mir-9256 microRNA precursor family: a 67-nucleotide RNA from Pipistrellus kuhlii.
RNA sequence: GUAUACACUGAGUGGCCAGAUUAUGAAGUUCUCUGAACUCAUAAUAAUCUGGCCACUCAGUGUAUUU
Numbered sequence: 001g002u003a004u005a006c007a008c009u010g011a012g013u014g015g016c017c018a019g020a021u022u023a024u025g026a027a028g029u030u031c032u033c034u035g036a037a038c039u040c041a042u043a044a045u046a047a048u049c050u051g052g053c054c055a056c057u058c059a060g061u062g063u064a065u066u067u
Stems, first nucleotide, its partner, number of pairs: 004064014019049006026042001028040001
Dot-bracket structure: ...((((((((((((((.((((((.(.(...........).).)))))).))))))))))))))...
Its family is annotated with miRNA-mediated post-transcriptional gene silencing and RISC complex in the Gene Ontology.